A member of the RNA family "Molybdenum/Tungsten riboswitch aptamer (Moco RNA motif)" from Thermanaeromonas toyohensis, 144 nucleotides long. Pairs were carried over by alignment from the consensus structure, which is taken from published work. Gene Ontology terms of the family: tungstate binding, molybdenum ion binding and regulation of gene expression. The organism belongs to Thermanaeromonas toyohensis, within Bacteria. Rfam 15.1 lists 1,248 matches to the family in 836 species.
[Rfam]
Nucleotides: 144
Base pairs, nucleotide, nucleotide: 002139003138005136011131013128014127015126016125019062020061021060022059023058024057025056027055028054029053033050034049035048036047066079067078068077069076085110086109087108088107089106090105091104092103093102095100111121112120
Number, partner (000 for none) and nucleotide at each position: 001000u002139c003138u004000a005136u006000a007000u008000u009000a010000g011131a012000c013128c014127u015126c016125c017000g018000a019062g020061c021060c022059a023058g024057u025056a026000a027055g028054c029053c030000u031000a032000c033050g034049g035048c036047u037000a038000a039000a040000a041000a042000c043000c044000u045000u046000a047036a048035g049034c050033u051000a052000u053029g054028g055027c056025u057024g058023c059022u060021g061020g062019c063000c064000u065000c066079c067078u068077g069076c070000c071000u072000c073000c074000a075000g076069g077068c078067a079066g080000u081000g082000a083000c084000g085110g086109g087108g088107u089106a090105g091104g092103c093102c094000g095100g096000g097000a098000a099000a100095c101000g102093g103092g104091c105090c106089u107088g108087c109086c110085u111121c112120c113000c114000g115000g116000a117000u118000u119000g120112g121111g122000a123000a124000a125016g126015g127014a128013g129000c130000c131011u132000u133000a134000a135000g136005g137000g138003a139002g140000a141000a142000a143000c144000u